[Rfam]
RNA sequence: AGGAGGAACAACCCCAGUGGCAGCGAUCAGCUCUGGAAACCUGGAGUCAUCCCCUGCAGUAACUAUGGAGCUCUCUGUCUGCAGGGCUUGGAGGCUCCAGGGCGAG
Dot-bracket structure: .((((...((((((....(((((.(...(((((((.(...(((.............)))....).)))))))).)))))....))).)))....))))........